[Rfam]
RNA: mir-181 microRNA precursor family
Organism: Ophiophagus hannah
RNA sequence: AAGUCACAAUCAACAUUCAUUCUGUCGGUGGGUUGUUAUGCUGGUGGAGAAGCUCACUGAUCAGUGAAUGCAACUGUGGCUGA
Numbered sequence: 001a002a003g004u005c006a007c008a009a010u011c012a013a014c015a016u017u018c019a020u021u022c023u024g025u026c027g028g029u030g031g032g033u034u035g036u037u038a039u040g041c042u043g044g045u046g047g048a049g050a051a052g053c054u055c056a057c058u059g060a061u062c063a064g065u066g067a068a069u070g071c072a073a074c075u076g077u078g079g080c081u082g083a
Stems, first nucleotide, its partner, number of pairs: 003081001004079005014070008024061007032053003